Rfam assigns this 45-nucleotide RNA sequence from Rattus norvegicus to the family "Histone 3' UTR stem-loop". The match comes from Rfam's covariance-model search (38 bits). Gene Ontology term of the family: mRNA 3'-end processing by stem-loop binding and cleavage. The mRNAs of metazoan histone genes lack a poly-A tail. 3' end processing occurs at a site between a highly conserved stem-loop (modelled by this family) and a purine rich region around 20 nts downstream (the histone downstream element, or HDE).

RNA sequence: CCAAAGGCUCUUUUCAGAGCCACUCACCUUACUGAAAGAAUGUUG
Numbered sequence: 001c002c003a004a005a006g007g008c009u010c011u012u013u014u015c016a017g018a019g020c021c022a023c024u025c026a027c028c029u030u031a032c033u034g035a036a037a038g039a040a041u042g043u044u045g
Base pairs, nucleotide, nucleotide: 006021007020008019009018010017011016
Dot-bracket structure: .....((((((....))))))........................
The base pairs follow the family's consensus structure, which is taken from published work.